[Rfam]
RNA sequence: AGUUAACUGUUCCAGCAUAUUGGGUAGCGACAAUAUAAGGCAGUUAAUCUAUGAAUUAGUAGUGGAUAAAGUUCUCCCAAACACUACGAAGUGGCGUAUUUCGACUAAGAAGUACGCCACUU
Numbered sequence: 001a002g003u004u005a006a007c008u009g010u011u012c013c014a015g016c017a018u019a020u021u022g023g024g025u026a027g028c029g030a031c032a033a034u035a036u037a038a039g040g041c042a043g044u045u046a047a048u049c050u051a052u053g054a055a056u057u058a059g060u061a062g063u064g065g066a067u068a069a070a071g072u073u074c075u076c077c078c079a080a081a082c083a084c085u086a087c088g089a090a091g092u093g094g095c096g097u098a099u100u101u102c103g104a105c106u107a108a109g110a111a112g113u114a115c116g117c118c119a120c121u122u
Base pairs, nucleotide, nucleotide: 002048003047004046005045006044007043008042017036018035019034020033021032022031062087063086064085065084073083075081090121091120092119093118094117095116096115097114098113099112100111101110102109
Rfam assigns this 122-nucleotide RNA from Staphylococcus sp. HMSC071G07 to the family "RNA Staph. aureus A". The organism belongs to Staphylococcus, within Bacteria. Gene Ontology terms of the family: sRNA-mediated gene silencing and mRNA binding. The match comes from Rfam's covariance-model search (78 bits). The family's RNA type in Rfam is small RNA. The literature on the family includes a 2017 paper in Nucleic Acids Res by Tomasini et al., "The RNA targetome of Staphylococcus aureus non-coding RNA RsaA: impact on cell surface properties and defense mechanisms". Rfam's curators write: Represses the translation of the transcriptional regulator MgrA by binding to its mRNA, enhances biofilm formation and decreases bacterial virulence. Other mRNAs, including SsaA-like enzymes involved in peptidoglycan metabolism and the secreted anti-inflammatory FLIPr protein were validated as direct targets of RsaA.